[Rfam]
Shown here is a 106-nucleotide RNA sequence from Iocasia frigidifontis, a member of the family "SAM riboswitch aptamer (S box leader)". Pairs were carried over by alignment from the consensus structure, which is taken from published work. Rfam's curators write: The SAM riboswitch is found upstream of a number of genes which code for proteins involved in methionine or cysteine biosynthesis in Gram-positive bacteria.
RNA sequence: UGUUCAUCAAGAGUGGUGGAGGGACUGGCCCUGUGAAACCCGGCAACCUACCCUGUGAGGUAAGGUGCUAAAUCCUGCAUUCCAGUUAAGGGAUGGGAGAUGAGAG
Numbered sequence: 001u002g003u004u005c006a007u008c009a010a011g012a013g014u015g016g017u018g019g020a021g022g023g024a025c026u027g028g029c030c031c032u033g034u035g036a037a038a039c040c041c042g043g044c045a046a047c048c049u050a051c052c053c054u055g056u057g058a059g060g061u062a063a064g065g066u067g068c069u070a071a072a073u074c075c076u077g078c079a080u081u082c083c084a085g086u087u088a089a090g091g092g093a094u095g096g097g098a099g100a101u102g103a104g105a106g
Stems, first nucleotide, its partner, number of pairs: 001106001003104006013041001015040003021031003025077001027075002042069004047065002049062004073098001078095006